RNA: c-di-GMP-I riboswitch aptamer
Organism: Paraliobacillus ryukyuensis
RNA sequence: UACCGAUAAUGGCAAACUUAUCGAAAGAUGAGGACGCAAAGCUAUGGAUCUAAGGCAAUCAAUGAAAAGCGAUGCUAAGAUAGCCAAGCUACCGAA
Numbered sequence: 001u002a003c004c005g006a007u008a009a010u011g012g013c014a015a016a017c018u019u020a021u022c023g024a025a026a027g028a029u030g031a032g033g034a035c036g037c038a039a040a041g042c043u044a045u046g047g048a049u050c051u052a053a054g055g056c057a058a059u060c061a062a063u064g065a066a067a068a069g070c071g072a073u074g075c076u077a078a079g080a081u082a083g084c085c086a087a088g089c090u091a092c093c094g095a096a
Stems, first nucleotide, its partner, number of pairs: 012037002017032006040090004045086003048081003055075003